[Rfam]
RNA sequence: UCUGGCAGCGGUGACACAUUUGCCCUCACUGCGAACACUGUUCAGUAAUGACCCUCGCCAUGCGCUCGGUCCAGCUGAGCCAGA
Numbered sequence: 001u002c003u004g005g006c007a008g009c010g011g012u013g014a015c016a017c018a019u020u021u022g023c024c025c026u027c028a029c030u031g032c033g034a035a036c037a038c039u040g041u042u043c044a045g046u047a048a049u050g051a052c053c054c055u056c057g058c059c060a061u062g063c064g065c066u067c068g069g070u071c072c073a074g075c076u077g078a079g080c081c082a083g084a
Stems, first nucleotide, its partner, number of pairs: 001084006
RNA: Small nucleolar RNA SNORD103/SNORD85
Organism: Crocodylus porosus